RNA: SAM riboswitch aptamer (S box leader)
RNA sequence: CACCCAUCGAGACCGGCUGAGGGGUAGGCCCGAAGACGCCGGGGCAACCCAUGCACGAGCAAUCGCGCAUGAAGGUGCCAAUUCCUGCGGGGACCGCGCGUCCGCCGAGAGAUGGGUC
Number, nucleotide and partner (000 for none) at each position: 001c000002a117003c116004c115005c114006a113007u112008c111009g000010a000011g000012a000013c042014c041015g040016g039017c038018u000019g000020a000021g031022g030023g029024g000025u087026a086027g085028g084029c023030c022031c021032g000033a000034a000035g000036a000037c000038g017039c016040c015041g014042g013043g079044g078045c077046a076047a000048c075049c074050c071051a070052u069053g068054c000055a000056c000057g000058a000059g000060c000061a000062a000063u000064c000065g000066c000067g000068c053069a052070u051071g050072a000073a000074g049075g048076u046077g045078c044079c043080a000081a000082u000083u110084c028085c027086u026087g025088c107089g106090g105091g000092g103093a000094c000095c000096g000097c000098g000099c000100g000101u000102c000103c092104g000105c090106c089107g088108a000109g000110a083111g008112a007113u006114g005115g004116g003117u002118c000